[Rfam]
RNA sequence: UCAAGCACAUCUCCUUAUCACUUUUCCAGCCCAGCUAUCUAUCAAAUAUUUGUUGGACGGAGAACUGAUAAGGGUAUGUGUCUGG
Numbered sequence: 001u002c003a004a005g006c007a008c009a010u011c012u013c014c015u016u017a018u019c020a021c022u023u024u025u026c027c028a029g030c031c032c033a034g035c036u037a038u039c040u041a042u043c044a045a046a047u048a049u050u051u052g053u054u055g056g057a058c059g060g061a062g063a064a065c066u067g068a069u070a071a072g073g074g075u076a077u078g079u080g081u082c083u084g085g
Stems, first nucleotide, its partner, number of pairs: 012074009022064006030056002
RNA: mir-184 microRNA precursor family
Organism: Acanthochromis polyacanthus